[Rfam]
RNA sequence: AGCGGUUCUUGGGUGAUGCAUCCCAGAACCAGAGAGAAGGGAGCCCGAUUCUGGGGUGUGUCACCCAAGAACUGCC
Numbered sequence: 001a002g003c004g005g006u007u008c009u010u011g012g013g014u015g016a017u018g019c020a021u022c023c024c025a026g027a028a029c030c031a032g033a034g035a036g037a038a039g040g041g042a043g044c045c046c047g048a049u050u051c052u053g054g055g056g057u058g059u060g061u062c063a064c065c066c067a068a069g070a071a072c073u074g075c076c
Stems, first nucleotide, its partner, number of pairs: 002075002005072013019058005025052004030047001032045001
Source information:
The family of this 76-nucleotide RNA from Cnephaeus nilssonii is "mir-9223 microRNA precursor family". Pairs were carried over by alignment from the consensus structure, which was predicted with RNAalifold. Rfam 15.1 lists 14,641 matches to the family in 28 species. The match comes from Rfam's covariance-model search (55 bits).